[Rfam]
Nucleotides: 046
Base pairs, nucleotide, nucleotide: 001020002019003018004017005016006015007014008013033045034044035043036042037041
Number, partner (000 for none) and nucleotide at each position: 001020c002019c003018c004017a005016a006015g007014g008013c009000u010000u011000a012000c013008g014007c015006c016005u017004u018003g019002g020001g021000c022000u023000g024000a025000g026000a027000u028000c029000u030000g031000c032000c033045g034044c035043c036042c037041u038000u039000a040000c041037a042036g043035g044034g045033c046000u
The family of this 46-nucleotide RNA from Parabacteroides sp. AF48-14 is "Acido-Lenti-1 RNA". It scores 56 bits against the family's covariance model. The family's RNA type in Rfam is small RNA.